Source information: Transposase-1 RNA: a 59-nucleotide RNA. By type it is a small RNA.
RNA sequence: CGUUAAGAGAAUGUCACUGUCAUUACCCUUUUAAAAGGAUAUGGGAAUACAUUUGUAAA
Numbered sequence: 001c002g003u004u005a006a007g008a009g010a011a012u013g014u015c016a017c018u019g020u021c022a023u024u025a026c027c028c029u030u031u032u033a034a035a036a037g038g039a040u041a042u043g044g045g046a047a048u049a050c051a052u053u054u055g056u057a058a059a
Stems, first nucleotide, its partner, number of pairs: 009054006020044004027038003